The record is a 77-nucleotide sequence from Yersinia pseudotuberculosis, which matches "tpke11" in Rfam.
By type it is a small RNA.
From the family's description: In Yersinia located in ICR upstream dnaJ (chaperone)gene. Has temperature responsive RNA structure.
RNA sequence: UACUGUUGCUGGAAACCAGCACGGGCGUCGAGGAAACUCUACGCCCGUGCACGCAUGUUAAGGGUAGGAAAAAAGAG
Number, nucleotide and partner (000 for none) at each position: 001u000002a000003c000004u000005g016006u000007u000008g000009c000010u000011g000012g000013a000014a000015a000016c005017c000018a000019g050020c049021a048022c047023g046024g045025g044026c043027g042028u000029c000030g039031a038032g037033g000034a000035a000036a000037c032038u031039c030040u000041a000042c027043g026044c025045c024046c023047g022048u021049g020050c019051a000052c000053g000054c000055a000056u000057g000058u000059u000060a000061a000062g000063g000064g000065u000066a000067g000068g000069a000070a000071a000072a000073a000074a000075g000076a000077g000

The sequence is in the family's curated seed alignment.